[Rfam]
RNA sequence: CUGUCACUGCGGCUGGAUCUCUUGAACACCGCUGGCAGGAGCGGGGGACCCAACCAAUGGGGCUUCGGCCCCUGGGGCUAAGGGGCCGGCGAUGCCGGCCCCCGGGCACACUCCAGCCCGAGUCCGACAGCUCACCCCGCAAGCGCAUGGAGAGGCUCC
Number, nucleotide and partner (000 for none) at each position: 001c000002u000003g000004u000005c000006a000007c000008u000009g000010c000011g000012g144013c143014u142015g000016g000017a000018u040019c039020u038021c000022u000023u000024g000025a000026a000027c000028a000029c000030c000031g000032c000033u000034g000035g000036c000037a000038g020039g019040a018041g140042c139043g138044g137045g136046g135047g000048a000049c000050c000051c074052a073053a000054c000055c000056a000057a000058u000059g000060g000061g000062g000063c000064u000065u000066c000067g000068g000069c000070c000071c000072c000073u052074g051075g125076g124077g123078c000079u000080a000081a000082g000083g101084g100085g099086c098087c000088g000089g000090c000091g000092a000093u000094g000095c000096c000097g000098g086099c085100c084101c083102c000103c000104g119105g118106g117107c116108a000109c000110a000111c000112u000113c000114c000115a000116g107117c106118c105119c104120g000121a000122g000123u077124c076125c075126g000127a000128c000129a000130g000131c000132u000133c000134a000135c046136c045137c044138c043139g042140c041141a000142a014143g013144c012145g000146c000147a000148u000149g000150g000151a000152g000153a000154g000155g000156c000157u000158c000159c000